[Rfam]
RNA: Eukaryotic small subunit ribosomal RNA, nucleotides 1635 to 1799
RNA sequence: CCGCCCGUCGCUACUACCGAUUGAAUGGCUCAGUGAGGCCUUCGGACUGGCUCGAGGAGGUUGGCAACGACCACCUCGAGCCGGAAAGUUCGUCAAACUCGGUCAUUUAGAGGAAGUAAAAGUCGUAACAAGGUCUCCGUAGGUGAACCUGCGGAGGGAUCAUUA
Numbered sequence: 001c002c003g004c005c006c007g008u009c010g011c012u013a014c015u016a017c018c019g020a021u022u023g024a025a026u027g028g029c030u031c032a033g034u035g036a037g038g039c040c041u042u043c044g045g046a047c048u049g050g051c052u053c054g055a056g057g058a059g060g061u062u063g064g065c066a067a068c069g070a071c072c073a074c075c076u077c078g079a080g081c082c083g084g085a086a087a088g089u090u091c092g093u094c095a096a097a098c099u100c101g102g103u104c105a106u107u108u109a110g111a112g113g114a115a116g117u118a119a120a121a122g123u124c125g126u127a128a129c130a131a132g133g134u135c136u137c138c139g140u141a142g143g144u145g146a147a148c149c150u151g152c153g154g155a156g157g158g159a160u161c162a163u164u165a
Stems, first nucleotide, its partner, number of pairs: 001132001003129001006125002009122001012118004017113002021109001023108008032099003037094003043088001047084011059072004134157010